Rfam assigns this 67-nucleotide RNA from Xenopus laevis to the family "Small nucleolar RNA SNORD101". For this family Rfam cites "Identification of 13 novel human modification guide RNAs" (Vitali et al., Nucleic Acids Res, 2003). Pairs were carried over by alignment from the consensus structure, which was predicted with PFOLD. The family is grouped with related families in Rfam's "SNORD101 clan". Taxonomically the source falls in Xenopus (Eukaryota, Craniata, Gnathostomata, Xenopodinae).
RNA sequence: GUCUGUGUGAUGAUUUAUAAGUCGGAUACCCCUUCACUCACUAAGUGAUAACUUCUAUCUGAUGGAC
Numbered sequence: 001g002u003c004u005g006u007g008u009g010a011u012g013a014u015u016u017a018u019a020a021g022u023c024g025g026a027u028a029c030c031c032c033u034u035c036a037c038u039c040a041c042u043a044a045g046u047g048a049u050a051a052c053u054u055c056u057a058u059c060u061g062a063u064g065g066a067c
Stems, first nucleotide, its partner, number of pairs: 001067005
Dot-bracket structure: (((((.........................................................)))))